[Rfam]
RNA sequence: UAAACUCGCUAGGGGUGCUCAAGGCUGAGAGGCACAUAGCCAACCCUAAAACCUGACCUCGAUAAUACGAGCGUAGGGAAGCGAACUUUGAGACCA
Numbered sequence: 001u002a003a004a005c006u007c008g009c010u011a012g013g014g015g016u017g018c019u020c021a022a023g024g025c026u027g028a029g030a031g032g033c034a035c036a037u038a039g040c041c042a043a044c045c046c047u048a049a050a051a052c053c054u055g056a057c058c059u060c061g062a063u064a065a066u067a068c069g070a071g072c073g074u075a076g077g078g079a080a081g082c083g084a085a086c087u088u089u090g091a092g093a094c095c096a
Stems, first nucleotide, its partner, number of pairs: 006084005011047004017025003032040002052077004058071004
Rfam assigns this 96-nucleotide sequence from Dehalococcoides mccartyi to the family "TPP riboswitch aptamer (THI element)".
Pairs were carried over by alignment from the consensus structure, which is taken from published work.